Shown here is a 118-nucleotide sequence from Thermacetogenium phaeum, a member of the family "Molybdenum/Tungsten riboswitch aptamer (Moco RNA motif)". The source organism's lineage runs through Bacteria, Bacillota, Thermoanaerobacteraceae, Thermacetogenium and Thermacetogenium phaeum. The family's consensus secondary structure is taken from published work. The match comes from Rfam's covariance-model search (68 bits).
RNA sequence: AGGAAAUAUCAUCUCCGAACCUGUCCGCCUGUGGCACUGGCUAUGGCAGCAGGUCUGUAGGGUAUGUCUGGAAACGGACAUACCUCCCGUUAUGGAAAGGGGAUUUACAACUUGAGUA
Numbered sequence: 001a002g003g004a005a006a007u008a009u010c011a012u013c014u015c016c017g018a019a020c021c022u023g024u025c026c027g028c029c030u031g032u033g034g035c036a037c038u039g040g041c042u043a044u045g046g047c048a049g050c051a052g053g054u055c056u057g058u059a060g061g062g063u064a065u066g067u068c069u070g071g072a073a074a075c076g077g078a079c080a081u082a083c084c085u086c087c088c089g090u091u092a093u094g095g096a097a098a099g100g101g102g103a104u105u106u107a108c109a110a111c112u113u114g115a116g117u118a
Base pairs, nucleotide, nucleotide: 003112011104012103013102014101015100016099019054020053021052022051023050024049027047028046029045033042034041035040060085061084062083063082064081065080066079067078068077069076070075086095087094